[Rfam]
RNA sequence: GGCCACCUUCGGGGGGCUUUACCAGAGGCGAUAAAACGCCAACAUAGCAGACGGAAGACAGAAA
Dot-bracket structure: ((((.(((...)))))))........((((......))))........................
Rfam assigns this 64-nucleotide RNA sequence to the family "L2-Alphaproteobacteria ribosomal protein leader".
By type it is a cis-regulatory leader.
Pairs were carried over by alignment from the consensus structure, which is taken from published work.
The sequence is in the family's curated seed alignment.
A reference for the family is Eckert and Weinberg (2020), "Discovery of 20 novel ribosomal leader candidates in bacteria and archaea", BMC Microbiol.